About this RNA: Glycine riboswitch aptamer: a 97-nucleotide RNA from Sulfurisoma sediminicola. This family represents the bacterial glycine riboswitch. NCBI's taxonomy places the organism under Bacteria, Pseudomonadota, Betaproteobacteria, Nitrosomonadales, Sulfurisoma.

RNA sequence: CGGCGGUCGUCGGGAGAGAGCAGGUCACCGAAUGGUGGCUUGCCGCCGAAGGCGCAAAGCCCAGGAACCGCUCAGGCAAAAGGGCCGACGACGCAGU
Number, nucleotide and partner (000 for none) at each position: 001c000002g000003g000004c000005g000006g092007u091008c090009g089010u088011c087012g086013g085014g000015a000016g000017a000018g000019a000020g043021c042022a041023g040024g039025u038026c037027a036028c035029c000030g000031a000032a000033u000034g000035g028036u027037g026038g025039c024040u023041u022042g021043c020044c000045g077046c076047c075048g073049a072050a000051g000052g071053c070054g069055c000056a000057a000058a000059g000060c000061c000062c000063a000064g000065g000066a000067a000068c000069c054070g053071c052072u049073c048074a000075g047076g046077c045078a000079a000080a000081a000082g000083g000084g000085c013086c012087g011088a010089c009090g008091a007092c006093g000094c000095a000096g000097u000